[Rfam]
RNA sequence: AGCCUUUGCGUUGCCCAUUCACUUUUGAAACUAGUGGAUAUGGUGUCAAAAAAGGCAUCAAUUAAAUGCUUUGCAGGCUUUUCCUGCCCUUAAACUUGGUAUCUUUGGUGUAGGAGCUGCGUAAGGAACGGUU
Dot-bracket structure: .((((((..(.((((.(((((((.........)))))))..)))).)...))))))............((((((((.....((((((((...(........)....)).)))))).))))).)))........
Numbered sequence: 001a002g003c004c005u006u007u008g009c010g011u012u013g014c015c016c017a018u019u020c021a022c023u024u025u026u027g028a029a030a031c032u033a034g035u036g037g038a039u040a041u042g043g044u045g046u047c048a049a050a051a052a053a054g055g056c057a058u059c060a061a062u063u064a065a066a067u068g069c070u071u072u073g074c075a076g077g078c079u080u081u082u083c084c085u086g087c088c089c090u091u092a093a094a095c096u097u098g099g100u101a102u103c104u105u106u107g108g109u110g111u112a113g114g115a116g117c118u119g120c121g122u123a124a125g126g127a128a129c130g131g132u133u
Stems, first nucleotide, its partner, number of pairs: 002056006010047001012045004017039007069125003072121005082115006088108002093102001
The record is a 133-nucleotide sequence from Propithecus coquereli, which matches "Small nucleolar RNA SNORA13" in Rfam. NCBI's taxonomy places the organism under Eukaryota, Craniata, Gnathostomata, Boreoeutheria, Propithecus. ACA13 is a member of the H/ACA class of snoRNA that guide the sites of modification of uridines to pseudouridines. The match comes from Rfam's covariance-model search (116 bits). Rfam 15.1 lists 1,034 matches to the family in 605 species. Clan: SNORA13 clan.